[Rfam]
RNA sequence: UCCUCGCUCAAAGAAUCGCAUUCAAAGCUUACACACAAAGGAGGGGAAUUUCUCCUCCUUUCACAUCCUCGCUUUGGGAGAAAGUCCCCGGACAACCUGCGCUCUUUCAGAGUUUUUCAAGCCAGGCAUUGCGGAAACGCGCCGCCAUAGAAGCAAUUCGACAGCGGCUUACGCCCUACUUCCCUGACUCUGUGCUCCUCGCUCGACAGCUUCUGGCUGGUCACAAUGGGGCGGCGGUGUCGGAGUUGGAUGGAAGAAGGGGGGACUUCGGUCUUCCCUUGUAUCGGGUUGCCUUUCGUCGUGGUUCGAUAGUCAUGCGAUUGCCUGCCGAUUCCUUGUGGAUUGGGAGGUAACUCAAUGGGGCUCAUUCUUGAGGCGAGG
Numbered sequence: 001u002c003c004u005c006g007c008u009c010a011a012a013g014a015a016u017c018g019c020a021u022u023c024a025a026a027g028c029u030u031a032c033a034c035a036c037a038a039a040g041g042a043g044g045g046g047a048a049u050u051u052c053u054c055c056u057c058c059u060u061u062c063a064c065a066u067c068c069u070c071g072c073u074u075u076g077g078g079a080g081a082a083a084g085u086c087c088c089c090g091g092a093c094a095a096c097c098u099g100c101g102c103u104c105u106u107u108c109a110g111a112g113u114u115u116u117u118c119a120a121g122c123c124a125g126g127c128a129u130u131g132c133g134g135a136a137a138c139g140c141g142c143c144g145c146c147a148u149a150g151a152a153g154c155a156a157u158u159c160g161a162c163a164g165c166g167g168c169u170u171a172c173g174c175c176c177u178a179c180u181u182c183c184c185u186g187a188c189u190c191u192g193u194g195c196u197c198c199u200c201g202c203u204c205g206a207c208a209g210c211u212u213c214u215g216g217c218u219g220g221u222c223a224c225a226a227u228g229g230g231g232c233g234g235c236g237g238u239g240u241c242g243g244a245g246u247u248g249g250a251u252g253g254a255a256g257a258a259g260g261g262g263g264g265a266c267u268u269c270g271g272u273c274u275u276c277c278c279u280u281g282u283a284u285c286g287g288g289u290u291g292c293c294u295u296u297c298g299u300c301g302u303g304g305u306u307c308g309a310u311a312g313u314c315a316u317g318c319g320a321u322u323g324c325c326u327g328c329c330g331a332u333u334c335c336u337u338g339u340g341g342a343u344u345g346g347g348a349g350g351u352a353a354c355u356c357a358a359u360g361g362g363g364c365u366c367a368u369u370c371u372u373g374a375g376g377c378g379a380g381g
Base pairs, nucleotide, nucleotide: 002381003380004379005378006377007376008374009373010372011371014322015321016320017319018318019317022078023076024075025074026073027072028071038060039059040058041057042056043055044054045053046052047051083365084364086363087362088361089360233293234292235291239289240288241287243285244284245282246281248279249276250275252273259269260268261267262266324350325349326348328346329345330344331343332342333341
RNA: RNase MRP
Organism: Penicillium oxalicum